[Rfam]
RNA sequence: CGCUUUCACGUGGGGUGCCUUACUUUCAGGCUGAGAUCACACCCAAAGAACCUGGACCAGGUAAUGCUGGUUAGGAAAGUGAAAAAUACUUAAC
Numbered sequence: 001c002g003c004u005u006u007c008a009c010g011u012g013g014g015g016u017g018c019c020u021u022a023c024u025u026u027c028a029g030g031c032u033g034a035g036a037u038c039a040c041a042c043c044c045a046a047a048g049a050a051c052c053u054g055g056a057c058c059a060g061g062u063a064a065u066g067c068u069g070g071u072u073a074g075g076a077a078a079g080u081g082a083a084a085a086a087u088a089c090u091u092a093a094c
Stems, first nucleotide, its partner, number of pairs: 006082004011045004016039001017031004051075004057070004

Description:
A member of the RNA family "TPP riboswitch aptamer (THI element)" from Chitinophaga jiangningensis, 94 nucleotides long. The base pairs follow the family's consensus structure, which is taken from published work.